RNA sequence: UUUUGGACAAGGUGCUCCAUUUUGUGGAUUUUCCCCAAAAGAGUGCCUUGUCCAUACAG
Numbered sequence: 001u002u003u004u005g006g007a008c009a010a011g012g013u014g015c016u017c018c019a020u021u022u023u024g025u026g027g028a029u030u031u032u033c034c035c036c037a038a039a040a041g042a043g044u045g046c047c048u049u050g051u052c053c054a055u056a057c058a059g
Base pairs, nucleotide, nucleotide: 002056004054005053006052007051008050009049010048011047012046020040021039022038023037024036026035
About this RNA: This 59-nucleotide sequence from Vombatus ursinus belongs to the Rfam family "mir-7386 microRNA precursor family". The family has 14 seed sequences and 118 matches in Rfam 15.1. The base pairs follow the family's consensus structure, which was predicted with RNAalifold. A search with the family's covariance model found it, with a score of 54 bits.